[Rfam]
RNA sequence: UUCAGGAGGUUCCCCAAUGAUGCGGAGCAUCAUUUUUUGCAUGGGACCGACGAACUGCCUCCGAAGCUUUAGCUGAGGUGGCGACACCAUAA
Numbered sequence: 001u002u003c004a005g006g007a008g009g010u011u012c013c014c015c016a017a018u019g020a021u022g023c024g025g026a027g028c029a030u031c032a033u034u035u036u037u038u039g040c041a042u043g044g045g046a047c048c049g050a051c052g053a054a055c056u057g058c059c060u061c062c063g064a065a066g067c068u069u070u071a072g073c074u075g076a077g078g079u080g081g082c083g084a085c086a087c088c089a090u091a092a
Base pairs, nucleotide, nucleotide: 008048009047010046011045012044013043017033018032019031020030021029022028057082058081059080061078062077065074066073
Dot-bracket structure: .......((((((...((((((.....)))))).........))))))........(((.((..((......))..)).)))..........